[Rfam]
RNA sequence: CGGCGGGCCUCCCCAUGGGCCCGCCGGCCCGACCCCGGUACCUGACACGGCCGGGGCGG
Number, nucleotide and partner (000 for none) at each position: 001c026002g025003g024004c023005g022006g021007g020008c019009c018010u000011c000012c000013c000014c000015a000016u000017g000018g009019g008020c007021c006022c005023g004024c003025c002026g001027g000028c000029c059030c058031g057032a000033c056034c055035c054036c053037g052038g051039u050040a000041c000042c000043u000044g000045a000046c000047a000048c000049g000050g039051c038052c037053g036054g035055g034056g033057c031058g030059g029

Background
Rfam assigns this 59-nucleotide sequence from Bailinhaonella thermotolerans to the family "L17-Actino-Proteobacteria ribosomal protein leader". The family's consensus secondary structure is taken from published work. On this family, see Eckert and Weinberg, BMC Microbiol 2020: "Discovery of 20 novel ribosomal leader candidates in bacteria and archaea". The family's RNA type in Rfam is cis-regulatory leader.